[Rfam]
Shown here is a 129-nucleotide sequence from Culex quinquefasciatus, a member of the family "U5 spliceosomal RNA". NCBI's taxonomy places the organism under Eukaryota, Metazoa, Culicomorpha, Culicinae, Culex pipiens complex. A search with the family's covariance model found it, with a score of 93 bits.
RNA sequence: UCACUCUGGUCUCUCUUCAAUUGUCGAAUAAAUCUUUCGCCUUUUACUAAAGAUUUCCGUGGAGAGGGACACUCUAAUGAGUCUAAAAUAAAUUUUUGUUCAUGCCUACCGCCCCUAACAAGGGCGGUA
Numbered sequence: 001u002c003a004c005u006c007u008g009g010u011c012u013c014u015c016u017u018c019a020a021u022u023g024u025c026g027a028a029u030a031a032a033u034c035u036u037u038c039g040c041c042u043u044u045u046a047c048u049a050a051a052g053a054u055u056u057c058c059g060u061g062g063a064g065a066g067g068g069a070c071a072c073u074c075u076a077a078u079g080a081g082u083c084u085a086a087a088a089u090a091a092a093u094u095u096u097u098g099u100u101c102a103u104g105c106c107u108a109c110c111g112c113c114c115c116u117a118a119c120a121a122g123g124g125c126g127g128u129a
Stems, first nucleotide, its partner, number of pairs: 003082004009070011030056008100129001108128006